[Rfam]
RNA sequence: GCAUCCAAGGAUGCACGCUGGCCGGCGAGGUUUCGCCCGCCGGCGCUUUUGCG
Numbered sequence: 001g002c003a004u005c006c007a008a009g010g011a012u013g014c015a016c017g018c019u020g021g022c023c024g025g026c027g028a029g030g031u032u033u034c035g036c037c038c039g040c041c042g043g044c045g046c047u048u049u050u051g052c053g
Stems, first nucleotide, its partner, number of pairs: 016045007025036004
A member of the RNA family "ffh sRNA" from Sphingomonas sp. Leaf20, 53 nucleotides long. The family's RNA type in Rfam is small RNA. A search with the family's covariance model found it, with a score of 41 bits. The organism belongs to Sphingomonas, within Bacteria. For this family Rfam cites "Identification of candidate structured RNAs in the marine organism 'Candidatus Pelagibacter ubique'" (Meyer et al., BMC Genomics, 2009).